[Rfam]
RNA sequence: UGUCAGUUUCAGGGCGGGGUGAGAUUCCCCACUGGCGGUAACUGGGAGGGCGCACGCCCCCAGAAGCCCGCGACCCGCGAAUACGCGGCUGACCCGGUGCGAGUCCGGGGCCAACGGUCAAAGUCCGGAUGGAAGAAACGGAGG
Dot-bracket structure: ..((.(((((......(((.......))).[[((((((...........................[[))))...((..........))....(((((.......)))))]])).(((.....]]))).......))))).))..
This 144-nucleotide RNA from Parolsenella catena belongs to the Rfam family "FMN riboswitch aptamer (RFN element)". It scores 103 bits against the family's covariance model. NCBI's taxonomy places the organism under Bacteria, Bacillati, Coriobacteriales, Atopobiaceae, Parolsenella. The family's consensus secondary structure is taken from published work.